Rfam assigns this 116-nucleotide RNA sequence to the family "RtT RNA". About the family: This family represents a bacterial cis-regulatory element known as RtT RNA. The exact function of RtT is unknown although it is thought that it may be involved in changing the cellular response in relation to amino acid starvation. The literature on the family includes a 1991 paper in Nucleic Acids Res by Bosl and Kersten, "A novel RNA product of the tyrT operon of Escherichia coli". Its family is annotated with cellular response to amino acid starvation in the Gene Ontology. The base pairs follow the family's consensus structure, which is taken from published work.
RNA sequence: GCUAUCUGCGAUUCGGGCAGGGUUCGAGCCUGCAGCAGGUUUGAGUUGAGCGAAAGCGAAACAACGUUGUGAUAACAACGGCCCAAAGGGUGAUAAUCAUCCUGCACGACCCACCA
Numbered sequence: 001g002c003u004a005u006c007u008g009c010g011a012u013u014c015g016g017g018c019a020g021g022g023u024u025c026g027a028g029c030c031u032g033c034a035g036c037a038g039g040u041u042u043g044a045g046u047u048g049a050g051c052g053a054a055a056g057c058g059a060a061a062c063a064a065c066g067u068u069g070u071g072a073u074a075a076c077a078a079c080g081g082c083c084c085a086a087a088g089g090g091u092g093a094u095a096a097u098c099a100u101c102c103u104g105c106a107c108g109a110c111c112c113a114c115c116a
Base pairs, nucleotide, nucleotide: 015107017105018104019103020102021101023099033092034091036089040087041086042085043084047058048057065080066079067078068077069076070075